Small nucleolar RNA SNORA23: a 182-nucleotide sequence from Acanthisitta chloris.
On this family, see Huttenhofer et al., EMBO J 2001: "RNomics: an experimental approach that identifies 201 candidates for novel, small, non-messenger RNAs in mouse".
From the family's description: The members of this family belong to the H/ACA class of snoRNAs which are thought to guide the sites of modification of uridines to pseudouridines. This family includes human snoRNA ACA23 (SNORA23) and mouse snoMBI-1. ACA23 is predicted to guide the pseudouridylation of residue U3737 and U4331 of 28S rRNA.
The base pairs follow the family's consensus structure, which was predicted with RNAalifold.
Rfam links the family to the GO terms nucleolus and RNA processing.
The family's RNA type in Rfam is H/ACA-box small nucleolar RNA.
RNA sequence: GCAGCACUGUGUGCACAGCUGCCCAUCUGUGUCUGGUGGUGUGGUCUGCUUGUGUUCUGCAUGUGGACCACACUGCUCACGCAAAACCUGUGGCCAAAGAGCAACCGGAGAUCAUAGUACUGGUCCAGUGACGUCUGAAGGACGAGCCUCCCACUGACCAGCCUCCACACUCUCAAACAUCU
Numbered sequence: 001g002c003a004g005c006a007c008u009g010u011g012u013g014c015a016c017a018g019c020u021g022c023c024c025a026u027c028u029g030u031g032u033c034u035g036g037u038g039g040u041g042u043g044g045u046c047u048g049c050u051u052g053u054g055u056u057c058u059g060c061a062u063g064u065g066g067a068c069c070a071c072a073c074u075g076c077u078c079a080c081g082c083a084a085a086a087c088c089u090g091u092g093g094c095c096a097a098a099g100a101g102c103a104a105c106c107g108g109a110g111a112u113c114a115u116a117g118u119a120c121u122g123g124u125c126c127a128g129u130g131a132c133g134u135c136u137g138a139a140g141g142a143c144g145a146g147c148c149u150c151c152c153a154c155u156g157a158c159c160a161g162c163c164u165c166c167a168c169a170c171u172c173u174c175a176a177a178c179a180u181c182u
Stems, first nucleotide, its partner, number of pairs: 013091003030083003034079003037075006044068005051061003108174004120161006127155004132146001133143003